A member of the RNA family "Acido-Lenti-1 RNA" from Candidatus Vecturithrix granuli, 46 nucleotides long. Pairs were carried over by alignment from the consensus structure, which is taken from published work.

[Rfam]
RNA sequence: CUCACCGUUAAAACGGUGGGUUAUUAUCAACCGUCCCUCCGGGACU
Numbered sequence: 001c002u003c004a005c006c007g008u009u010a011a012a013a014c015g016g017u018g019g020g021u022u023a024u025u026a027u028c029a030a031c032c033g034u035c036c037c038u039c040c041g042g043g044a045c046u
Stems, first nucleotide, its partner, number of pairs: 001020008033045005